The family of this 68-nucleotide RNA from Mesocricetus auratus is "Small nucleolar RNA SNORD95". For this family Rfam cites "Identification of 13 novel human modification guide RNAs" (Vitali et al., Nucleic Acids Res, 2003). It is annotated as a C/D-box small nucleolar RNA. The base pairs follow the family's consensus structure, which was predicted with PFOLD. The organism belongs to Mesocricetus, within Eukaryota.
[Rfam]
RNA sequence: AGAGCAGUGAUGACCCCAACAUGCCAUCUGAGGUGCAAUGCUGAAAUCCAGAGGCUGUUUCUGAGCUG
Numbered sequence: 001a002g003a004g005c006a007g008u009g010a011u012g013a014c015c016c017c018a019a020c021a022u023g024c025c026a027u028c029u030g031a032g033g034u035g036c037a038a039u040g041c042u043g044a045a046a047u048c049c050a051g052a053g054g055c056u057g058u059u060u061c062u063g064a065g066c067u068g
Stems, first nucleotide, its partner, number of pairs: 005068004
Dot-bracket structure: ....((((........................................................))))